The family of this 79-nucleotide RNA from Mytilus coruscus is "mir-137 microRNA precursor family".
The family has 62 seed sequences and 1,138 matches in Rfam 15.1.
Its family is annotated with RISC complex and miRNA-mediated post-transcriptional gene silencing in the Gene Ontology.
The family is grouped with related families in Rfam's "mir-137 clan".
The match comes from Rfam's covariance-model search (57 bits).
The literature on the family includes a 2007 paper in Genome Res by Ruby et al., "Evolution, biogenesis, expression, and target predictions of a substantially expanded set of Drosophila microRNAs".
RNA sequence: GUCCAGAGCGGGUAUUCUCGGGUGAAUAAUAUUCUUUGCAUUUUGGUUGUAUUAUUGCUUGAGAAUACACGUCACUGAC
Numbered sequence: 001g002u003c004c005a006g007a008g009c010g011g012g013u014a015u016u017c018u019c020g021g022g023u024g025a026a027u028a029a030u031a032u033u034c035u036u037u038g039c040a041u042u043u044u045g046g047u048u049g050u051a052u053u054a055u056u057g058c059u060u061g062a063g064a065a066u067a068c069a070c071g072u073c074a075c076u077g078a079c
Base pairs, nucleotide, nucleotide: 001079002078003077008072009071010070012068013067014066015065016064017063018062019061020060021059022058023057025056026055027054028053029052030051031050